The family of this 35-nucleotide RNA from Pedobacter hartonius is "DUF805b RNA".

RNA sequence: UCAGGAGCAUCCGAAAACCUGAAAUAGAGUAGGAA
Number, nucleotide and partner (000 for none) at each position: 001u000002c021003a020004g019005g018006a000007g000008c000009a000010u034011c033012c032013g000014a000015a000016a000017a000018c005019c004020u003021g002022a000023a000024a000025u000026a000027g000028a000029g000030u000031a000032g012033g011034a010035a000

Its Rfam clan is "DUF805 clan". A search with the family's covariance model found it, with a score of 41 bits.